The family of this 127-nucleotide RNA sequence from Dendrobium catenatum is "U11 spliceosomal RNA". By type it is a spliceosomal small nuclear RNA. A search with the family's covariance model found it, with a score of 56 bits. Lineage of the source: Eukaryota > Magnoliopsida > Asparagales > Orchidaceae > Dendrobium.
RNA sequence: UAAAAGGGUCUGUUGGCUAUGUAUGCCACGCACAUCUUUUAAUUGAUGGGUGUUGUAUGAUUAUCAAGACAUAUGGUCAACAUAAUUUAUGGAUCUUAUAGGGCUGGCUUGCUCGGCUAACCCUCUU
Numbered sequence: 001u002a003a004a005a006g007g008g009u010c011u012g013u014u015g016g017c018u019a020u021g022u023a024u025g026c027c028a029c030g031c032a033c034a035u036c037u038u039u040u041a042a043u044u045g046a047u048g049g050g051u052g053u054u055g056u057a058u059g060a061u062u063a064u065c066a067a068g069a070c071a072u073a074u075g076g077u078c079a080a081c082a083u084a085a086u087u088u089a090u091g092g093a094u095c096u097u098a099u100a101g102g103g104c105u106g107g108c109u110u111g112c113u114c115g116g117c118u119a120a121c122c123c124u125c126u127u
Stems, first nucleotide, its partner, number of pairs: 008081002011079002014028004029052003033048004053076007100124004105119003109116002